[Rfam]
RNA sequence: CAGCAUACUGGGAGCUGUAACCCAAGGGCGGUAGCUUU
Numbered sequence: 001c002a003g004c005a006u007a008c009u010g011g012g013a014g015c016u017g018u019a020a021c022c023c024a025a026g027g028g029c030g031g032u033a034g035c036u037u038u
Stems, first nucleotide, its partner, number of pairs: 009024004
RNA: JUMPstart RNA